A member of the RNA family "Lysine riboswitch aptamer" from Dickeya dadantii, 198 nucleotides long. Taxonomically the source falls in Dickeya dadantii (Bacteria, Pseudomonadati, Pectobacteriaceae, Dickeya). Pairs were carried over by alignment from the consensus structure, which is taken from published work.

RNA sequence: CAAGCCAGAAGAGGAGCGCCGCCCAGGCAAGGUAUCGGAGGAACCGUAUCCGAUGAGGAUACCAGAGGGGGAGCGGCGCCGAGACAGACGUAACCUACGGUGUUUACGCUGCCGACCGCAGGGGCUGAAUCCCCUGGGUUGUCACCCGCAUCGCUCCGCAAGGCGGAACGAUCAGCAAGGUGGAGCGCUUCUGGGUGU
Numbered sequence: 001c002a003a004g005c006c007a008g009a010a011g012a013g014g015a016g017c018g019c020c021g022c023c024c025a026g027g028c029a030a031g032g033u034a035u036c037g038g039a040g041g042a043a044c045c046g047u048a049u050c051c052g053a054u055g056a057g058g059a060u061a062c063c064a065g066a067g068g069g070g071g072a073g074c075g076g077c078g079c080c081g082a083g084a085c086a087g088a089c090g091u092a093a094c095c096u097a098c099g100g101u102g103u104u105u106a107c108g109c110u111g112c113c114g115a116c117c118g119c120a121g122g123g124g125c126u127g128a129a130u131c132c133c134c135u136g137g138g139u140u141g142u143c144a145c146c147c148g149c150a151u152c153g154c155u156c157c158g159c160a161a162g163g164c165g166g167a168a169c170g171a172u173c174a175g176c177a178a179g180g181u182g183g184a185g186c187g188c189u190u191c192u193g194g195g196u197g198u
Stems, first nucleotide, its partner, number of pairs: 006193006016079007024071001031063006083113001085111003089108005114140004119136006142183005